Record summary: The family of this 70-nucleotide RNA sequence from Flammeovirga sp. SJP92 is "DUF805 RNA". Its Rfam clan is "DUF805 clan". It scores 56 bits against the family's covariance model. Rfam classes the family as a cis-regulatory element.

RNA sequence: UUAGAGUGGAGUCCAGAUACCACUUAAAUCAACGGUGGCAAAUUCCAAAAGCCAUAAAAGUAGGACAAAC
Numbered sequence: 001u002u003a004g005a006g007u008g009g010a011g012u013c014c015a016g017a018u019a020c021c022a023c024u025u026a027a028a029u030c031a032a033c034g035g036u037g038g039c040a041a042a043u044u045c046c047a048a049a050a051g052c053c054a055u056a057a058a059a060g061u062a063g064g065a066c067a068a069a070c
Stems, first nucleotide, its partner, number of pairs: 006023004037053003044064002